About this RNA: Shown here is a 69-nucleotide sequence from Hymenobacter lutimineralis, a member of the family "DUF805 RNA". NCBI's taxonomy places the organism under Bacteria, Bacteroidota, Cytophagia, Hymenobacteraceae, Hymenobacter. The family is grouped with related families in Rfam's "DUF805 clan". The family's consensus secondary structure is taken from published work. By type it is a cis-regulatory element.
RNA sequence: CCUGCGUGGAGUUCAGAAACCACCUAAAAAAACGGGGCGACACCGAAAAGCCUUACGAGUAGGAAACCU
Numbered sequence: 001c002c003u004g005c006g007u008g009g010a011g012u013u014c015a016g017a018a019a020c021c022a023c024c025u026a027a028a029a030a031a032a033c034g035g036g037g038c039g040a041c042a043c044c045g046a047a048a049a050g051c052c053u054u055a056c057g058a059g060u061a062g063g064a065a066a067c068c069u
Stems, first nucleotide, its partner, number of pairs: 006023004036052003043063002